The record is a 67-nucleotide sequence from Serinus canaria, which matches "mir-34 microRNA precursor family" in Rfam.
[Rfam]
RNA sequence: GGUUUGCAGGCAGUGCCCUUAGCUGAUUGUCCCUGCCCACAAUCACUAACCUCACUGCCACCAAAAC
Numbered sequence: 001g002g003u004u005u006g007c008a009g010g011c012a013g014u015g016c017c018c019u020u021a022g023c024u025g026a027u028u029g030u031c032c033c034u035g036c037c038c039a040c041a042a043u044c045a046c047u048a049a050c051c052u053c054a055c056u057g058c059c060a061c062c063a064a065a066a067c
Stems, first nucleotide, its partner, number of pairs: 003065004009059002012056004019049004024045007
Human mir-34a was discovered computationally and later experimentally verified. Pairs were carried over by alignment from the consensus structure, which was predicted with RNAalifold. Gene Ontology terms of the family: RISC complex and miRNA-mediated post-transcriptional gene silencing. It scores 55 bits against the family's covariance model. Its Rfam clan is "mir-34 clan".